[Rfam]
mir-9193 microRNA precursor family: a 74-nucleotide sequence from Myotis myotis.
RNA sequence: CUGGGGGAGGGGGUGUCCCUCAGCCCGGAUUGCGAGAGGGCGCAGGCCAGACCUAAGGACCCCAUCAAUGCAUG
Numbered sequence: 001c002u003g004g005g006g007g008a009g010g011g012g013g014u015g016u017c018c019c020u021c022a023g024c025c026c027g028g029a030u031u032g033c034g035a036g037a038g039g040g041c042g043c044a045g046g047c048c049a050g051a052c053c054u055a056a057g058g059a060c061c062c063c064a065u066c067a068a069u070g071c072a073u074g
Stems, first nucleotide, its partner, number of pairs: 004071001006069001009066002012063002015060004020055001023052001025050001027048002030045005